Record summary:
Shown here is a 114-nucleotide RNA from Sphenodon punctatus, a member of the family "Potassium channel RNA editing signal".
[Rfam]
RNA sequence: GUGGGCUAUGGGGACAUGAGGCCUGUCACGGUAGGAGGGAAGAUUGUGGGCUCUUUGUGCGCCAUAGCCGGCGUGCUCACCAUCGCUUUGCCUGUCCCUGUCAUUGUCUCCAAC
Number, nucleotide and partner (000 for none) at each position: 001g114002u113003g000004g111005g110006c000007u000008a107009u106010g105011g104012g000013g102014a101015c100016a099017u000018g097019a000020g000021g095022c094023c000024u000025g000026u000027c000028a000029c000030g000031g000032u000033a000034g000035g000036a000037g077038g076039g000040a074041a000042g000043a000044u000045u000046g000047u000048g000049g063050g062051c061052u000053c000054u000055u000056u000057g000058u000059g000060c000061g051062c050063c049064a000065u000066a000067g000068c000069c000070g000071g000072c000073g000074u040075g000076c038077u037078c000079a000080c000081c000082a000083u000084c000085g000086c000087u000088u000089u000090g000091c000092c000093u000094g022095u021096c000097c018098c000099u016100g015101u014102c013103a000104u011105u010106g009107u008108c000109u000110c005111c004112a000113a002114c001
A search with the family's covariance model found it, with a score of 107 bits. The base pairs follow the family's consensus structure, which is taken from published work. Rfam 15.1 lists 14,095 matches to the family in 1,000 species. Taxonomically the source falls in Sphenodon (Eukaryota, Opisthokonta, Chordata, Sauria). By type it is a cis-regulatory element. On this family, see Bhalla et al., Nat Struct Mol Biol 2004: "Control of human potassium channel inactivation by editing of a small mRNA hairpin".